[Rfam]
The family of this 257-nucleotide sequence from Scytonema hofmannii is "HNH endonuclease-associated RNA and ORF (HEARO) RNA". For this family Rfam cites "Exceptional structured noncoding RNAs revealed by bacterial metagenome analysis" (Weinberg et al., Nature, 2009). Rfam 15.1 lists 952 matches to the family in 249 species. The match comes from Rfam's covariance-model search (97 bits). By type it is a non-coding RNA gene.
RNA sequence: GUGACGACUCCACACACUUCCGCAAAGCGGUAAGUGUGGGCUUCUUAAGAAAUUAAGAGGUUCGUCAUUAGCCUCAGUAACCCGCCCGUGCGAGGGUUGCUACGUUUUUUAAGAAUGUAUAGGCACUUUGGGAUAUAGGGAGUAGCGCCCUGUCUUCUAGUCCCAAACACUGCGGCUUGUGGUUAAACAUCUCUACAGGUAGAGGAGAAGUGCUGCAAGUAAGAAACCUUGAAAAACAUUGGCGAAGAAGACCACGC
Numbered sequence: 001g002u003g004a005c006g007a008c009u010c011c012a013c014a015c016a017c018u019u020c021c022g023c024a025a026a027g028c029g030g031u032a033a034g035u036g037u038g039g040g041c042u043u044c045u046u047a048a049g050a051a052a053u054u055a056a057g058a059g060g061u062u063c064g065u066c067a068u069u070a071g072c073c074u075c076a077g078u079a080a081c082c083c084g085c086c087c088g089u090g091c092g093a094g095g096g097u098u099g100c101u102a103c104g105u106u107u108u109u110u111a112a113g114a115a116u117g118u119a120u121a122g123g124c125a126c127u128u129u130g131g132g133a134u135a136u137a138g139g140g141a142g143u144a145g146c147g148c149c150c151u152g153u154c155u156u157c158u159a160g161u162c163c164c165a166a167a168c169a170c171u172g173c174g175g176c177u178u179g180u181g182g183u184u185a186a187a188c189a190u191c192u193c194u195a196c197a198g199g200u201a202g203a204g205g206a207g208a209a210g211u212g213c214u215g216c217a218a219g220u221a222a223g224a225a226a227c228c229u230u231g232a233a234a235a236a237c238a239u240u241g242g243c244g245a246a247g248a249a250g251a252c253c254a255c256g257c
Base pairs, nucleotide, nucleotide: 001068002067003066004065005064006063007062010040011039012037013036016031017030041057042056043055071243072242073241076101077100078099079098080097081096082095083094104237105236106235107234108233109232110231111230112229113228123173124172127167128166129165130164131163132162133161134160175220176219177218178217179216180215181214182213183212187211188210190208191207192206193205194204196202